[Rfam]
RNA sequence: GCGGAAGGACGACCUUCUCCUCAUCGCACCAUCAGCGGGGACGACCCUG
Numbered sequence: 001g002c003g004g005a006a007g008g009a010c011g012a013c014c015u016u017c018u019c020c021u022c023a024u025c026g027c028a029c030c031a032u033c034a035g036c037g038g039g040g041a042c043g044a045c046c047c048u049g
Stems, first nucleotide, its partner, number of pairs: 001020001003018006036049005
The record is a 49-nucleotide sequence from Bradyrhizobium ivorense, which matches "Guanidine-II riboswitch aptamer (mini-ykkC)" in Rfam. About the family: Simpler in structure and has fewer highly conserved nucleotide positions than the ykkC-yxkD leader. Despite this each of its two stem-loop structures directly bind free guanidine. Therefore, mini-ykkC RNA motif represents a distinct class of guanidine-sensing RNAs. Its crystal structure was also determined. For this family Rfam cites "The Structure of the Guanidine-II Riboswitch" (Huang et al., Cell Chem Biol, 2017). The base pairs follow the family's consensus structure, which is taken from published work.